Source information:
A member of the RNA family "mir-1994 microRNA precursor family" from Acanthosepion pharaonis, 71 nucleotides long. Rfam 15.1 lists 26 matches to the family in 16 species.

[Rfam]
RNA sequence: GCCAAGGGAGGUGACUCUGUUCUGCAUGUCAGACGUAAAACCCUCAUGAGACAGUGUGUCCUCCCUUGGAA
Numbered sequence: 001g002c003c004a005a006g007g008g009a010g011g012u013g014a015c016u017c018u019g020u021u022c023u024g025c026a027u028g029u030c031a032g033a034c035g036u037a038a039a040a041c042c043c044u045c046a047u048g049a050g051a052c053a054g055u056g057u058g059u060c061c062u063c064c065c066u067u068g069g070a071a
Base pairs, nucleotide, nucleotide: 002069003068006064007063008062010060011059014057015056017054018053019052021051022050023049026047027046028045
Dot-bracket structure: .((..(((.((..((.(((.(((..(((................))).)))))).)).)).)))...))..
The match comes from Rfam's covariance-model search (48 bits). Pairs were carried over by alignment from the consensus structure, which was predicted with RNAalifold. The source organism's lineage runs through Eukaryota, Eumetazoa, Spiralia, Cephalopoda and Acanthosepion. Rfam links the family to the GO terms RISC complex and miRNA-mediated post-transcriptional gene silencing.